[Rfam]
RNA: SAM riboswitch aptamer (S box leader)
RNA sequence: CUCUUAUCCAGAGCGACUGAGGGAUUCGGCCCGAUGAAGUCGCGGCAACCCGGUAAGCCCAUUCGCCCAUUACCGAAAAGGCUUUCCAAGGUGCCAAUUCCGACCCGGACGGGGGAAACGUCCGGGAGAGAUGAGAG
Numbered sequence: 001c002u003c004u005u006a007u008c009c010a011g012a013g014c015g016a017c018u019g020a021g022g023g024a025u026u027c028g029g030c031c032c033g034a035u036g037a038a039g040u041c042g043c044g045g046c047a048a049c050c051c052g053g054u055a056a057g058c059c060c061a062u063u064c065g066c067c068c069a070u071u072a073c074c075g076a077a078a079a080g081g082c083u084u085u086c087c088a089a090g091g092u093g094c095c096a097a098u099u100c101c102g103a104c105c106c107g108g109a110c111g112g113g114g115g116a117a118a119c120g121u122c123c124g125g126g127a128g129a130g131a132u133g134a135g136a137g
Stems, first nucleotide, its partner, number of pairs: 001137008013043005021032003026103004044095004049091002052087002055084005099129001104126008